[Rfam]
RNA sequence: UUUGUUACAUUUGUCAGGACAAAUGCAAUAUAUAUAUUGCAAUAGAUAUAUUGCAUUUGUCCUGACAAAUGUAACAAAG
Numbered sequence: 001u002u003u004g005u006u007a008c009a010u011u012u013g014u015c016a017g018g019a020c021a022a023a024u025g026c027a028a029u030a031u032a033u034a035u036a037u038u039g040c041a042a043u044a045g046a047u048a049u050a051u052u053g054c055a056u057u058u059g060u061c062c063u064g065a066c067a068a069a070u071g072u073a074a075c076a077a078a079g
Base pairs, nucleotide, nucleotide: 004075005074006073009070010069011068012067013066014065016063017062018061019060020059022057023056024055025054026053027052028051029050030049031048032047033046

A member of the RNA family "mir-92 microRNA precursor family" from Thamnophis sirtalis, 79 nucleotides long. This family represents the microRNA precursor mir-92. NCBI's taxonomy places the organism under Eukaryota, Opisthokonta, Craniata, Tetrapoda, Thamnophis. The family is grouped with related families in Rfam's "mir-92 microRNA precursor clan". Gene Ontology terms of the family: RISC complex and miRNA-mediated post-transcriptional gene silencing. A search with the family's covariance model found it, with a score of 53 bits.